The family of this 81-nucleotide RNA sequence from Aminipila terrae is "pan motif". It is annotated as a cis-regulatory element. The match comes from Rfam's covariance-model search (48 bits).
RNA sequence: UGGACAGUAUAAAUGUAACUGUACCUUAUGAUUUUUUUAUUUUUAUUUUGAAGCCUAUAUCCUAAGGAGUGGGACUGAUAU
Numbered sequence: 001u002g003g004a005c006a007g008u009a010u011a012a013a014u015g016u017a018a019c020u021g022u023a024c025c026u027u028a029u030g031a032u033u034u035u036u037u038u039a040u041u042u043u044u045a046u047u048u049u050g051a052a053g054c055c056u057a058u059a060u061c062c063u064a065a066g067g068a069g070u071g072g073g074a075c076u077g078a079u080a081u
Stems, first nucleotide, its partner, number of pairs: 002025002004022005010017002052076002054073005060068003